[Rfam]
RNA sequence: AAAAACCUCGAAUCAAUACAGACUGAGAAAAUUGAUUUUAAAAUAAA
Numbered sequence: 001a002a003a004a005a006c007c008u009c010g011a012a013u014c015a016a017u018a019c020a021g022a023c024u025g026a027g028a029a030a031a032u033u034g035a036u037u038u039u040a041a042a043a044u045a046a047a
Stems, first nucleotide, its partner, number of pairs: 008040001010038008

A member of the RNA family "Plastid-rpl16 group II-D1 intron" from Manihot esculenta, 47 nucleotides long. From the family's description: Plastid-rpl16 is a non-coding RNA (ncRNA) recognised in plastids. It was recognised in and intronic region of a ribosome rpl16 gene. Gene Ontology term of the family: Group II intron splicing. The organism belongs to Manihot, within Eukaryota. The match comes from Rfam's covariance-model search (46 bits). The family has 538 seed sequences and 1,446 matches in Rfam 15.1. Pairs were carried over by alignment from the consensus structure, which was predicted with LocARNA. The literature on the family includes a 2023 paper in Plant Commun by Richter et al., "Retrograde signaling in plants: A critical review focusing on the GUN pathway and beyond".